[Rfam]
RNA sequence: GACUGUAAUGGUCCAACGGGGAAGGCGCUCAAACCCGCUCAACCGUCCAUCCCAAUUCUGGUUGUGCUUGCACUUCCAGCCCUCCGCCGCGCCCCGCCCGAACGCUGCGGUGGCCGCCCACUCGUGCAGGUAACUCACGAUGCUGGAACUAUUGCGGCCCUAAGCACUGGAGAUGACCCUUGAGGGAGGUUUCACUCUGCAGAGAUCUCUCCCCCGUCGCGUGGCGGGUGGGAACACGUUAGUGCGGGGGGAUUUGGGAUGGCAAAUGGAUGAGAUGGAGCAACCAACUCUUUUU
Numbered sequence: 001g002a003c004u005g006u007a008a009u010g011g012u013c014c015a016a017c018g019g020g021g022a023a024g025g026c027g028c029u030c031a032a033a034c035c036c037g038c039u040c041a042a043c044c045g046u047c048c049a050u051c052c053c054a055a056u057u058c059u060g061g062u063u064g065u066g067c068u069u070g071c072a073c074u075u076c077c078a079g080c081c082c083u084c085c086g087c088c089g090c091g092c093c094c095c096g097c098c099c100g101a102a103c104g105c106u107g108c109g110g111u112g113g114c115c116g117c118c119c120a121c122u123c124g125u126g127c128a129g130g131u132a133a134c135u136c137a138c139g140a141u142g143c144u145g146g147a148a149c150u151a152u153u154g155c156g157g158c159c160c161u162a163a164g165c166a167c168u169g170g171a172g173a174u175g176a177c178c179c180u181u182g183a184g185g186g187a188g189g190u191u192u193c194a195c196u197c198u199g200c201a202g203a204g205a206u207c208u209c210u211c212c213c214c215c216g217u218c219g220c221g222u223g224g225c226g227g228g229u230g231g232g233a234a235c236a237c238g239u240u241a242g243u244g245c246g247g248g249g250g251g252a253u254u255u256g257g258g259a260u261g262g263c264a265a266a267u268g269g270a271u272g273a274g275a276u277g278g279a280g281c282a283a284c285c286a287a288c289u290c291u292u293u294u295u
Stems, first nucleotide, its partner, number of pairs: 001013003016293001018291004027281004032276001034274001036272002039269003047262009060077002064073003081248003085244003089239003093232008102222004107217004114146003118142001120141001122140005128135002160164001169212005179204003186197003

The family of this 295-nucleotide sequence from Fusarium langsethiae is "Fungal signal recognition particle RNA". The family's RNA type in Rfam is non-coding RNA gene. The organism belongs to Fusarium sambucinum species complex, within Eukaryota.